Background
Rfam assigns this 96-nucleotide RNA sequence from Vitis vinifera to the family "Small nucleolar RNA snoR109". The sequence is in the family's curated seed alignment. By type it is an H/ACA-box small nucleolar RNA. On this family, see Marker et al., Curr Biol 2002: "Experimental RNomics: identification of 140 candidates for small non-messenger RNAs in the plant Arabidopsis thaliana".
Nucleotides: 096
Stems, first nucleotide, its partner, number of pairs: 030090008042077003046073004050068004
Number, partner (000 for none) and nucleotide at each position: 001000u002000g003000g004000c005000u006000g007000u008000a009000g010000c011000u012000a013000u014000a015000u016000c017000a018000a019000a020000u021000c022000a023000a024000a025000u026000g027000g028000c029000u030090g031089a032088g033087a034086a035085g036084u037083u038000a039000a040000c041000u042077g043076g044075c045000c046073g047072g048071u049070u050068g051067u052066c053065g054000u055000g056000a057000a058000u059000c060000u061000c062000u063000g064000u065053c066052g067051a068050c069000a070049a071048a072047u073046c074000u075044g076043c077042u078000u079000a080000c081000c082000g083037a084036a085035c086034u087033u088032c089031u090030c091000a092000c093000a094000u095000u096000u